[Rfam]
RNA sequence: UAAAAUAUAAAAACUAAGCCAAAGACAGUAGGGGUGUAAACUUAAAAAUCCUACCGAGGUUAAGGUUUAUAAGAUAGACCGAACCUUAAUUACUUGCAACCUUCGUCUUUUGUCUUUGGGACGGAGGUUUUUUAUUAAGAGG
Numbered sequence: 001u002a003a004a005a006u007a008u009a010a011a012a013a014c015u016a017a018g019c020c021a022a023a024g025a026c027a028g029u030a031g032g033g034g035u036g037u038a039a040a041c042u043u044a045a046a047a048a049u050c051c052u053a054c055c056g057a058g059g060u061u062a063a064g065g066u067u068u069a070u071a072a073g074a075u076a077g078a079c080c081g082a083a084c085c086u087u088a089a090u091u092a093c094u095u096g097c098a099a100c101c102u103u104c105g106u107c108u109u110u111u112g113u114c115u116u117u118g119g120g121a122c123g124g125a126g127g128u129u130u131u132u133u134a135u136u137a138a139g140a141g142g
Stems, first nucleotide, its partner, number of pairs: 028054006034041002100127010
Shown here is a 142-nucleotide RNA sequence from Hypnocyclicus thermotrophus, a member of the family "Ribosomal protein L10 leader". Rfam classes the family as a cis-regulatory leader. The source organism's lineage runs through Bacteria, Fusobacteriati, Fusobacteriia, Fusobacteriaceae and Hypnocyclicus. On this family, see Yakhnin et al., Nucleic Acids Res 2015: "Ribosomal protein L10(L12)4 autoregulates expression of the Bacillus subtilis rplJL operon by a transcription attenuation mechanism". Rfam's curators write: This family is a putative r-protein leader autoregulatory structure found in B. subtilis and other low-GC Gram-positive bacteria. It is located in the 5' untranslated regions of mRNAs encoding ribosomal proteins L10 and L12 (rplJ-rplL). A Rho-independent transcription terminator structure that is probably involved in regulation is included at the 3' end. It scores 87 bits against the family's covariance model.